[Rfam]
RNA sequence: GCACUACAGCAAACCAAUUCCUGCUCCAUCACAGCUGGAAGUGGGUUAAAACAGUGCGAUAGUAACUCAUAGUGUAUCCAGACAGGUCUCCUCAUCUGUUGGAACUUGUCCCUACAAACUAUGAUACAUGA
Numbered sequence: 001g002c003a004c005u006a007c008a009g010c011a012a013a014c015c016a017a018u019u020c021c022u023g024c025u026c027c028a029u030c031a032c033a034g035c036u037g038g039a040a041g042u043g044g045g046u047u048a049a050a051a052c053a054g055u056g057c058g059a060u061a062g063u064a065a066c067u068c069a070u071a072g073u074g075u076a077u078c079c080a081g082a083c084a085g086g087u088c089u090c091c092u093c094a095u096c097u098g099u100u101g102g103a104a105c106u107u108g109u110c111c112c113u114a115c116a117a118a119c120u121a122u123g124a125u126a127c128a129u130g131a
Stems, first nucleotide, its partner, number of pairs: 001057005012047004017042002020038002067124006081110007092102003
Source information:
Shown here is a 131-nucleotide sequence from Sinocyclocheilus anshuiensis, a member of the family "Small nucleolar RNA SNORA55". Taxonomically the source falls in Sinocyclocheilus (Eukaryota, Clupeocephala, Otomorpha, Cyprinidae). Rfam describes the family as follows. ACA55 is a member of the H/ACA class of snoRNA that guide the sites of modification of uridines to pseudouridines.